[Rfam]
RNA sequence: CGCAGGUGCCUUCCGUCCGGGAUGGAUAAGACCCUCAGCAAGUCCUAUCUUCCCAGCUCAGAAGGCACCUCUUCUAUCUUGAUCCACUAUGUGAGCGGCCCUAAUGAAGGGCUGAG
Numbered sequence: 001c002g003c004a005g006g007u008g009c010c011u012u013c014c015g016u017c018c019g020g021g022a023u024g025g026a027u028a029a030g031a032c033c034c035u036c037a038g039c040a041a042g043u044c045c046u047a048u049c050u051u052c053c054c055a056g057c058u059c060a061g062a063a064g065g066c067a068c069c070u071c072u073u074c075u076a077u078c079u080u081g082a083u084c085c086a087c088u089a090u091g092u093g094a095g096c097g098g099c100c101c102u103a104a105u106g107a108a109g110g111g112c113u114g115a116g
Base pairs, nucleotide, nucleotide: 002072004070005069006068007067008066009065010064011063012062013061015059018056020054021053024050025049026048027047031043032042096114097113098112099111100110101109102108